[Rfam]
RNA sequence: GCCGUGACAUUGUUCAAAGCCUCCACGUGGCUCACGGCAGAAACAACAAAAUUUGUUGGCUAAUGUUGAA
Numbered sequence: 001g002c003c004g005u006g007a008c009a010u011u012g013u014u015c016a017a018a019g020c021c022u023c024c025a026c027g028u029g030g031c032u033c034a035c036g037g038c039a040g041a042a043a044c045a046a047c048a049a050a051a052u053u054u055g056u057u058g059g060c061u062a063a064u065g066u067u068g069a070a
Base pairs, nucleotide, nucleotide: 001038002037003036004035005034006033007032019031020030021029044058045057046056047055048054